[Rfam]
RNA sequence: AGGCACUGCGCGGGAGAGCGCGGGCGAACCUUUCAGGUUCGGCCCGCCGCCGAAGGAGCAACCGCCCCGGAAUCUCUCAGGCAACCGGACCGCGCAGGGCUG
Numbered sequence: 001a002g003g004c005a006c007u008g009c010g011c012g013g014g015a016g017a018g019c020g021c022g023g024g025c026g027a028a029c030c031u032u033u034c035a036g037g038u039u040c041g042g043c044c045c046g047c048c049g050c051c052g053a054a055g056g057a058g059c060a061a062c063c064g065c066c067c068c069g070g071a072a073u074c075u076c077u078c079a080g081g082c083a084a085c086c087g088g089a090c091c092g093c094g095c096a097g098g099g100c101u102g
Base pairs, nucleotide, nucleotide: 006097007096008095009094010093011092012091013090020047021046022045023044024043025042049082050081051080052078053077056076057075058074062070063069
Shown here is a 102-nucleotide sequence from Sphingomonas sp. Leaf357, a member of the family "Glycine riboswitch aptamer".
Rfam's curators write: This family represents the bacterial glycine riboswitch. Glycine riboswitches usually consist of two metabolite-binding aptamers domains with similar structures in tandem. The aptamers cooperatively bind glycine to regulate the expression of downstream genes. In Bacillus subtilis, this riboswitch is found upstream of the gcvT operon which controls glycine degradation.